[Rfam]
Description:
This 85-nucleotide RNA sequence from Geodermatophilus obscurus belongs to the Rfam family "ZMP/ZTP riboswitch aptamer (pfl RNA motif)". A search with the family's covariance model found it, with a score of 45 bits. Lineage of the source: Bacteria > Actinomycetes > Geodermatophilales > Geodermatophilus > Geodermatophilus obscurus. The base pairs follow the family's consensus structure, which is taken from published work.

RNA sequence: GGCCGGGGCCGUGACUGGCGCUGCUGAGGUGGACCACCACCGGGGAGCGGCCCGCACCACCCCGCCGGGCGCCUGGGCACCCACC
Numbered sequence: 001g002g003c004c005g006g007g008g009c010c011g012u013g014a015c016u017g018g019c020g021c022u023g024c025u026g027a028g029g030u031g032g033a034c035c036a037c038c039a040c041c042g043g044g045g046a047g048c049g050g051c052c053c054g055c056a057c058c059a060c061c062c063c064g065c066c067g068g069g070c071g072c073c074u075g076g077g078c079a080c081c082c083a084c085c
Stems, first nucleotide, its partner, number of pairs: 006053007015044002017073005029040004064078003